[Rfam]
RNA sequence: UUCGUUCAUCUCGAUUGAUCUUUAGGUAGUAGUUCGAGACGGAAGUAAGGACAGCAGCUCCCGCUGAGCCUGAAGGAACGCGUU
Numbered sequence: 001u002u003c004g005u006u007c008a009u010c011u012c013g014a015u016u017g018a019u020c021u022u023u024a025g026g027u028a029g030u031a032g033u034u035c036g037a038g039a040c041g042g043a044a045g046u047a048a049g050g051a052c053a054g055c056a057g058c059u060c061c062c063g064c065u066g067a068g069c070c071u072g073a074a075g076g077a078a079c080g081c082g083u084u
Stems, first nucleotide, its partner, number of pairs: 003080005009039005042081001048071003
The family of this 84-nucleotide RNA from cf. Phormidesmis sp. LEGE 11477 is "Glutamine riboswitch aptamer (glnA leader)". Lineage of the source: Bacteria > Bacillati > Cyanobacteriota > Leptolyngbyaceae > Phormidesmis. Rfam links the family to the GO term glutamine binding. The literature on the family includes a 2011 paper in RNA Biol by Ames and Breaker, "Bacterial aptamers that selectively bind glutamine".